[Rfam]
RNA sequence: CCAGACGGCUGGGCGGUCGCGGCGGACUUCGCGUCCGUCGAGGAAAGUCCGGGCUCCACGGUGAAAAGGCGGCGGAUAACUUCCGCCCGGGGCGACCCGAGGGAUAGCGCCACAGAAAGCAAACCUCCGGCCUUGCGAGGCCGGUAAGGGUGAAAGGGUGGGGUAAGAGCCCACCGCGGACCUGGCAACAGGGACGGCAUGGCAAGCCCCGCCUGGAGCAAGACCAAAUAGGGACAUCGCGCGGGCUCGCUCGCGGGGCUCACCGCCUCAGAUGUCCGGGUAGGUCGCGAGAACCGAUCAGCAAUGGUCGGUCCAGAGGAAUGAUCGUCGCCGUUCUCAGGAACGGAACAAAACCCGGCUUACAGGCCGUCUGGCAUA
Numbered sequence: 001c002c003a004g005a006c007g008g009c010u011g012g013g014c015g016g017u018c019g020c021g022g023c024g025g026a027c028u029u030c031g032c033g034u035c036c037g038u039c040g041a042g043g044a045a046a047g048u049c050c051g052g053g054c055u056c057c058a059c060g061g062u063g064a065a066a067a068g069g070c071g072g073c074g075g076a077u078a079a080c081u082u083c084c085g086c087c088c089g090g091g092g093c094g095a096c097c098c099g100a101g102g103g104a105u106a107g108c109g110c111c112a113c114a115g116a117a118a119g120c121a122a123a124c125c126u127c128c129g130g131c132c133u134u135g136c137g138a139g140g141c142c143g144g145u146a147a148g149g150g151u152g153a154a155a156g157g158g159u160g161g162g163g164u165a166a167g168a169g170c171c172c173a174c175c176g177c178g179g180a181c182c183u184g185g186c187a188a189c190a191g192g193g194a195c196g197g198c199a200u201g202g203c204a205a206g207c208c209c210c211g212c213c214u215g216g217a218g219c220a221a222g223a224c225c226a227a228a229u230a231g232g233g234a235c236a237u238c239g240c241g242c243g244g245g246c247u248c249g250c251u252c253g254c255g256g257g258g259c260u261c262a263c264c265g266c267c268u269c270a271g272a273u274g275u276c277c278g279g280g281u282a283g284g285u286c287g288c289g290a291g292a293a294c295c296g297a298u299c300a301g302c303a304a305u306g307g308u309c310g311g312u313c314c315a316g317a318g319g320a321a322u323g324a325u326c327g328u329c330g331c332c333g334u335u336c337u338c339a340g341g342a343a344c345g346g347a348a349c350a351a352a353a354c355c356c357g358g359c360u361u362a363c364a365g366g367c368c369g370u371c372u373g374g375c376a377u378a
Stems, first nucleotide, its partner, number of pairs: 001374010011363001012329007020040008045361003049358005054218004063263001067214005072086005087101001088099004102209002107207002109203003124149002127144007157175006176198001177196002181192004222286004232277006255269005293312008
RNA: Bacterial RNase P class A
Organism: Brevundimonas sp. SH203